RNA sequence: UAGGGGCGUCAGGGCCAGGAGCCCCCCCCCGAGCCCCGGAUAACCCUUGAUGUGGGGGGCCA
Numbered sequence: 001u002a003g004g005g006g007c008g009u010c011a012g013g014g015c016c017a018g019g020a021g022c023c024c025c026c027c028c029c030c031g032a033g034c035c036c037c038g039g040a041u042a043a044c045c046c047u048u049g050a051u052g053u054g055g056g057g058g059g060c061c062a
Stems, first nucleotide, its partner, number of pairs: 008041003012036004016031001018029002023059005
RNA: Gag/pol translational readthrough site